RNA sequence: AGCAGAUUGAUGAUGAAAUAAUUUCUCCAAGCGCUUUUUAUACUGACAUCUGUAUGAUGGAGGGCUAAUUUACAGUAGCCUUCAUAGUUUUCAAUCUGAACCAUCU
Numbered sequence: 001a002g003c004a005g006a007u008u009g010a011u012g013a014u015g016a017a018a019u020a021a022u023u024u025c026u027c028c029a030a031g032c033g034c035u036u037u038u039u040a041u042a043c044u045g046a047c048a049u050c051u052g053u054a055u056g057a058u059g060g061a062g063g064g065c066u067a068a069u070u071u072a073c074a075g076u077a078g079c080c081u082u083c084a085u086a087g088u089u090u091u092c093a094a095u096c097u098g099a100a101c102c103a104u105c106u
Stems, first nucleotide, its partner, number of pairs: 004106004030044002033041001060083008069074001

The family of this 106-nucleotide RNA sequence from Leersia perrieri is "Small nucleolar RNA Z194". Rfam 15.1 lists 65 matches to the family in 24 species. For this family Rfam cites "The high diversity of snoRNAs in plants: identification and comparative study of 120 snoRNA genes from Oryza sativa" (Chen et al., Nucleic Acids Res, 2003). The organism belongs to Leersia, within Eukaryota. Rfam classes the family as a C/D-box small nucleolar RNA.